[Rfam]
RNA sequence: GUUCGUCUUCAGGGCAGGGUGUAAUUCCCGACCGGUGGUGAUAGUCCACGACCUAUCUUGGUAACAAGAUGGCUGAAUUGGUGAAAUUCCAAUACCGACAGUAAAGUCUGGAUGGAAGAGGAUAGAG
Numbered sequence: 001g002u003u004c005g006u007c008u009u010c011a012g013g014g015c016a017g018g019g020u021g022u023a024a025u026u027c028c029c030g031a032c033c034g035g036u037g038g039u040g041a042u043a044g045u046c047c048a049c050g051a052c053c054u055a056u057c058u059u060g061g062u063a064a065c066a067a068g069a070u071g072g073c074u075g076a077a078u079u080g081g082u083g084a085a086a087u088u089c090c091a092a093u094a095c096c097g098a099c100a101g102u103a104a105a106g107u108c109u110g111g112a113u114g115g116a117a118g119a120g121g122a123u124a125g126a127g
Stems, first nucleotide, its partner, number of pairs: 003125001005123006017029003031107002033097002035049004044095002053072002077093005099110003

About this RNA: Shown here is a 127-nucleotide RNA sequence from Vagococcus lutrae, a member of the family "FMN riboswitch aptamer (RFN element)". Lineage of the source: Bacteria > Bacillati > Bacillota > Lactobacillales > Vagococcus lutrae. Rfam links the family to the GO term FMN binding. The family's consensus secondary structure is taken from published work.